Background:
The record is a 107-nucleotide RNA sequence from Streptococcus uberis, which matches "Streptococcus sRNA SSRC41" in Rfam. On this family, see Tesorero et al., PLoS One 2013: "Novel Regulatory Small RNAs in Streptococcus pyogenes". The source organism's lineage runs through Bacteria, Bacillati, Bacilli, Streptococcus and Streptococcus uberis. The family's consensus secondary structure was predicted with CMfinder.
RNA sequence: AAGCUCAUAUGAGCUUUUUUUGAUUGUUCAUAACUAGAUUUCUUGUUAAAUCUCAAAAAAUAAGCUAUAAUUAAUCAUAGCACUUAGUUUAGAAAGAAGGUGUAAGU
Numbered sequence: 001a002a003g004c005u006c007a008u009a010u011g012a013g014c015u016u017u018u019u020u021u022g023a024u025u026g027u028u029c030a031u032a033a034c035u036a037g038a039u040u041u042c043u044u045g046u047u048a049a050a051u052c053u054c055a056a057a058a059a060a061u062a063a064g065c066u067a068u069a070a071u072u073a074a075u076c077a078u079a080g081c082a083c084u085u086a087g088u089u090u091a092g093a094a095a096g097a098a099g100g101u102g103u104a105a106g107u
Base pairs, nucleotide, nucleotide: 003076005074007072012066013065014064015063016062018060019059020058021057030046031045032044080103081102082101083100084099085098
The family's RNA type in Rfam is small RNA.